[Rfam]
RNA sequence: CUGCAUAGCGAAGCGCCAGAACACGUGUUUUGCGUGUUGACGAGGGGGAGGUUUAUCGAAUUUUUCGGCGGAUGCCUCCCGGCCUGCCACGGCCGUAAGGAACCUACAAAACCGAUGAGUGAUCAGCGGGACAAAGGGGUUUGCAGUGGCUUAU
Numbered sequence: 001c002u003g004c005a006u007a008g009c010g011a012a013g014c015g016c017c018a019g020a021a022c023a024c025g026u027g028u029u030u031u032g033c034g035u036g037u038u039g040a041c042g043a044g045g046g047g048g049a050g051g052u053u054u055a056u057c058g059a060a061u062u063u064u065u066c067g068g069c070g071g072a073u074g075c076c077u078c079c080c081g082g083c084c085u086g087c088c089a090c091g092g093c094c095g096u097a098a099g100g101a102a103c104c105u106a107c108a109a110a111a112c113c114g115a116u117g118a119g120u121g122a123u124c125a126g127c128g129g130g131a132c133a134a135a136g137g138g139g140u141u142u143g144c145a146g147u148g149g150c151u152u153a154u
Base pairs, nucleotide, nucleotide: 020038021037022036023035024034025033026032027031047079048078049077050076051075056068057067058066059065080095081094082093083092084091100144101141102140103139104138112129113128114127116125117124118123
Source information:
The family of this 154-nucleotide RNA sequence from Dethiobacter alkaliphilus is "glmS glucosamine-6-phosphate activated ribozyme aptamer". A reference for the family is Jansen et al. (2006), "Backbone and nucleobase contacts to glucosamine-6-phosphate in the glmS ribozyme", Nat Struct Mol Biol. Rfam classes the family as a riboswitch. This entry contains a glucosamine-6-phosphate activated ribozyme that is found in the mRNA for GlmS. GlmS is an enzyme that uses fructose-6-phosphate and glutamine to generate glucosamine-6-phosphate. Rfam links the family to the GO terms regulation of gene expression and catalytic activity.